RNA sequence: UGGUAGAUGCACCCUGAUUGUUAACCCCUGAGAUGCCUGGAGGGAUCUCAGGGGUUUUCUU
Numbered sequence: 001u002g003g004u005a006g007a008u009g010c011a012c013c014c015u016g017a018u019u020g021u022u023a024a025c026c027c028c029u030g031a032g033a034u035g036c037c038u039g040g041a042g043g044g045a046u047c048u049c050a051g052g053g054g055u056u057u058u059c060u061u
Stems, first nucleotide, its partner, number of pairs: 002013003026053009036043001

A member of the RNA family "Nitrogen stress-induced RNA 1" from Pseudanabaena sp. FACHB-2040, 61 nucleotides long.
The match comes from Rfam's covariance-model search (54 bits).